Rfam assigns this 91-nucleotide sequence from Bacillus yapensis to the family "pan motif". The source organism's lineage runs through Bacteria, Bacillati, Bacillota, Bacilli and Bacillus. A search with the family's covariance model found it, with a score of 70 bits. Pairs were carried over by alignment from the consensus structure, which is taken from published work.

[Rfam]
RNA sequence: CGGGCAGUAUCAUUUUUGAACUGCACCUGGAAUCACAAUUUUUUGAAAUGAAUAGUAGUCUGCCUAGAUCCAAAUGGACCGGGACAGAGGG
Number, nucleotide and partner (000 for none) at each position: 001c000002g027003g026004g024005c023006a022007g021008u020009a000010u019011c018012a000013u000014u000015u000016u000017u000018g011019a010020a008021c007022u006023g005024c004025a000026c003027c002028u000029g000030g000031a000032a000033u000034c000035a000036c000037a000038a000039u000040u000041u000042u000043u000044u000045g000046a000047a000048a000049u000050g000051a000052a000053u000054a000055g000056u000057a000058g000059u000060c087061u086062g085063c083064c082065u081066a000067g079068a000069u078070c077071c076072a000073a000074a000075u000076g071077g070078a069079c067080c000081g065082g064083g063084a000085c062086a061087g060088a000089g000090g000091g000